[Rfam]
This 97-nucleotide RNA sequence from Methyloprofundus sedimenti belongs to the Rfam family "t44 RNA". About the family: This family consists of a number of bacterial RNA genes of between 135 and 170 bases in length. The t44 gene has been identified in several species of enteric bacteria but homologs have also been identified in Pseudomonas and Coxiella species. Pairs were carried over by alignment from the consensus structure, which was predicted with LocARNA.
RNA sequence: UGCGAAGUAUGAUUAAAACUCACAUUUAUCGUCACAGUUGGUGGGGUGCCCGUUUUUUAUAAAACUGGUUUCUGGCUGGGAUAGGUGGAGGCGUAAC
Numbered sequence: 001u002g003c004g005a006a007g008u009a010u011g012a013u014u015a016a017a018a019c020u021c022a023c024a025u026u027u028a029u030c031g032u033c034a035c036a037g038u039u040g041g042u043g044g045g046g047u048g049c050c051c052g053u054u055u056u057u058u059a060u061a062a063a064a065c066u067g068g069u070u071u072c073u074g075g076c077u078g079g080g081a082u083a084g085g086u087g088g089a090g091g092c093g094u095a096a097c
Base pairs, nucleotide, nucleotide: 023087024086025085026084027083028082029081030080035078036077037076038075039074040073041072043070048069049068050067052065